[Rfam]
RNA sequence: AUAACAAGAAUAAAAAGCAGCAAACCUAAUAAAAAUAAGACGUAACGACUCUGAGAUAACAAAAACAACACGGCAGAGACGCAGCUAACAGAUUUUUUUGGAGAGGAUGCACUGUGCAGGAGGGCUUGCAAGAGCCACCCGCAACCGGUCAGAGAACAAUAAAACUACCCUGAGGUAGCUCCCGAACUGGUUGGAUCGCCCUGGCGACACAUUGAAUCAGCGCUCAAAAAAAUACGUUUGCUCUUGAUCCCGGAUGGGGAUCGCCAAAAACAGCAGUAAAGGGCAACGGUUGCCAAAAACAACAAUAGACCGCCCCUCAAUAAUAAAAAAAGAGCACGCAACGACAAAAUUAAAGGGGAGCUUCGGCUCCCCUUUGUGCUUUCUGCGAUCCCUCUUUGCUGCCCAU
Numbered sequence: 001a002u003a004a005c006a007a008g009a010a011u012a013a014a015a016a017g018c019a020g021c022a023a024a025c026c027u028a029a030u031a032a033a034a035a036u037a038a039g040a041c042g043u044a045a046c047g048a049c050u051c052u053g054a055g056a057u058a059a060c061a062a063a064a065a066c067a068a069c070a071c072g073g074c075a076g077a078g079a080c081g082c083a084g085c086u087a088a089c090a091g092a093u094u095u096u097u098u099u100g101g102a103g104a105g106g107a108u109g110c111a112c113u114g115u116g117c118a119g120g121a122g123g124g125c126u127u128g129c130a131a132g133a134g135c136c137a138c139c140c141g142c143a144a145c146c147g148g149u150c151a152g153a154g155a156a157c158a159a160u161a162a163a164a165c166u167a168c169c170c171u172g173a174g175g176u177a178g179c180u181c182c183c184g185a186a187c188u189g190g191u192u193g194g195a196u197c198g199c200c201c202u203g204g205c206g207a208c209a210c211a212u213u214g215a216a217u218c219a220g221c222g223c224u225c226a227a228a229a230a231a232a233u234a235c236g237u238u239u240g241c242u243c244u245u246g247a248u249c250c251c252g253g254a255u256g257g258g259g260a261u262c263g264c265c266a267a268a269a270a271c272a273g274c275a276g277u278a279a280a281g282g283g284c285a286a287c288g289g290u291u292g293c294c295a296a297a298a299a300c301a302a303c304a305a306u307a308g309a310c311c312g313c314c315c316c317u318c319a320a321u322a323a324u325a326a327a328a329a330a331a332g333a334g335c336a337c338g339c340a341a342c343g344a345c346a347a348a349a350u351u352a353a354a355g356g357g358g359a360g361c362u363u364c365g366g367c368u369c370c371c372c373u374u375u376g377u378g379c380u381u382u383c384u385g386c387g388a389u390c391c392c393u394c395u396u397u398g399c400u401g402c403c404c405a406u
Stems, first nucleotide, its partner, number of pairs: 046081002049078004096229005110222001112220001142193007165178005247261005283386002286384001287312004334379004353374009
A member of the RNA family "Pseudomonas sRNA CrcZ" from Pseudomonas protegens, 406 nucleotides long.
Rfam classes the family as a small RNA.
A reference for the family is Livny et al. (2006), "Identification of 17 Pseudomonas aeruginosa sRNAs and prediction of sRNA-encoding genes in 10 diverse pathogens using the bioinformatic tool sRNAPredict2", Nucleic Acids Res.
The sequence is in the family's curated seed alignment.
Gene Ontology term of the family: carbon catabolite repression of transcription.